[Rfam]
RNA sequence: ACGCGCGCUCCGGGGUCGGUGAAAAUCCGAACCGGCGGUUACAGUCCGCGACCCGGUCGACGCCCCGCAUCACGUGGAGCGACGGCCGGCUGAACCGGUGGAAUUCCGGUACCGACGGUCAAAGUCCGGAUGGGAGGUGGCGCGC
Numbered sequence: 001a002c003g004c005g006c007g008c009u010c011c012g013g014g015g016u017c018g019g020u021g022a023a024a025a026u027c028c029g030a031a032c033c034g035g036c037g038g039u040u041a042c043a044g045u046c047c048g049c050g051a052c053c054c055g056g057u058c059g060a061c062g063c064c065c066c067g068c069a070u071c072a073c074g075u076g077g078a079g080c081g082a083c084g085g086c087c088g089g090c091u092g093a094a095c096c097g098g099u100g101g102a103a104u105u106c107c108g109g110u111a112c113c114g115a116c117g118g119u120c121a122a123a124g125u126c127c128g129g130a131u132g133g134g135a136g137g138u139g140g141c142g143c144g145c
Stems, first nucleotide, its partner, number of pairs: 003143004009137002017029003031125002033114002035049004044112002053089007094110005116128003